[Rfam]
RNA sequence: AGCUUAUCUGUGAUGUAAAAAUAAAUGUCUGAACAUAUGAAUUCAGUAUUGAUUUCAGCAUGUAACUGAGAUAAGCU
Numbered sequence: 001a002g003c004u005u006a007u008c009u010g011u012g013a014u015g016u017a018a019a020a021a022u023a024a025a026u027g028u029c030u031g032a033a034c035a036u037a038u039g040a041a042u043u044c045a046g047u048a049u050u051g052a053u054u055u056c057a058g059c060a061u062g063u064a065a066c067u068g069a070g071a072u073a074a075g076c077u
Stems, first nucleotide, its partner, number of pairs: 002076007